Record summary: Shown here is a 405-nucleotide RNA from Rhodovibrio salinarum, a member of the family "Alphaproteobacteria transfer-messenger RNA". Lineage of the source: Bacteria > Alphaproteobacteria > Rhodospirillales > Rhodovibrionaceae > Rhodovibrio. On this family, see Williams and Bartel, RNA 1996: "Phylogenetic analysis of tmRNA secondary structure". Gene Ontology term of the family: RNA catabolic process.
RNA sequence: ACCCUUUAAAAAGGUAAGCCUCUGCCCCACAUGGAUAAAUGUCCGGUCGCACCGGACUAUGGGCAUAAACGGCACGUUCACUAGCCGUAGCGGACCCGGGGGCAGUACCCGGCGCCUCCACCAACAUCACCGACCCGCGUAUCGCCGUUCCCCUCUUUCGGCGUUGCACGUCGGGUCGGGCUGCCACCUCAUGGGGGCGAACCAGGAUCGACGCGCGGCAAAAGACGUGUCUUUGCCCCGGCAUGGCAUCCGCCGUUAUCGGGCCAUCCAAGAAGUGCGAACGACAAUCGCGCUCCGGUUGCCGCGGCCGCGUAACAGCGCCAAGGCAACCACGGCAUAAAUCCCUAGUCGGGUCGAGUCCGGCUAGGUGGGGUCUGGGGCUACCUAGCAACAGAAAGCCCCACU
Number, nucleotide and partner (000 for none) at each position: 001a000002c000003c000004c000005u000006u000007u000008a000009a000010a000011a000012a000013g000014g000015u000016a000017a000018g000019c000020c000021u000022c000023u000024g000025c000026c000027c000028c000029a000030c000031a000032u000033g000034g000035a000036u000037a000038a000039a000040u000041g057042u056043c055044c054045g053046g052047u051048c000049g000050c000051a047052c046053c045054g044055g043056a042057c041058u000059a000060u000061g238062g237063g236064c235065a234066u000067a000068a000069a000070c000071g231072g230073c229074a228075c227076g226077u225078u000079c000080a000081c000082u000083a000084g000085c000086c217087g216088u215089a000090g214091c213092g212093g000094a000095c000096c112097c111098g110099g109100g108101g000102g000103c000104a000105g000106u000107a000108c100109c099110c098111g097112g096113c199114g198115c197116c196117u195118c194119c193120a000121c000122c000123a000124a000125c000126a000127u000128c000129a000130c000131c000132g000133a000134c000135c000136c000137g000138c000139g000140u000141a000142u000143c000144g000145c000146c000147g000148u000149u000150c000151c000152c000153c000154u000155c000156u000157u000158u000159c000160g000161g000162c000163g000164u000165u000166g000167c000168a000169c000170g000171u000172c000173g000174g000175g000176u000177c000178g000179g000180g000181c000182u000183g000184c000185c000186a000187c000188c000189u000190c000191a000192u000193g119194g118195g117196g116197g115198c114199g113200a000201a000202c000203c000204a000205g000206g000207a000208u000209c000210g000211a000212c092213g091214c090215g088216c087217g086218g000219c000220a000221a000222a000223a000224g000225a077226c076227g075228u074229g073230u072231c071232u000233u000234u065235g064236c063237c062238c061239c255240g254241g253242c252243a000244u266245g265246g264247c000248a000249u262250c261251c000252g242253c241254c240255g239256u000257u000258a000259u000260c000261g250262g249263g000264c246265c245266a244267u000268c000269c000270a000271a000272g000273a000274a000275g000276u000277g000278c000279g000280a000281a000282c000283g000284a000285c000286a000287a000288u000289c000290g000291c000292g000293c000294u000295c000296c000297g000298g000299u000300u000301g000302c000303c000304g000305c000306g000307g000308c000309c000310g000311c000312g000313u000314a000315a000316c000317a000318g000319c000320g000321c000322c000323a000324a000325g000326g000327c000328a000329a000330c000331c000332a000333c000334g000335g000336c000337a000338u000339a000340a000341a000342u000343c000344c000345c000346u000347a000348g000349u000350c000351g000352g000353g000354u000355c000356g000357a000358g000359u000360c000361c000362g000363g000364c000365u000366a000367g000368g000369u000370g000371g386372g385373g384374u383375c000376u000377g402378g401379g400380g399381c398382u397383a374384c373385c372386u371387a000388g000389c000390a000391a000392c000393a000394g000395a000396a000397a382398g381399c380400c379401c378402c377403a000404c000405u000
Bacterial tmRNA, also known as 10Sa RNA or SsrA, is named for its dual tRNA and mRNA-like properties. Its role is to liberate the mRNA from a stalled ribosome. To accomplish this part of the tmRNA is used as a reading frame that ends in a translation stop signal. The broken mRNA is replaced in the ribosome by the tmRNA and translation of the tmRNA leads to addition of a proteolysis tag to the incomplete protein enabling recognition by a protease.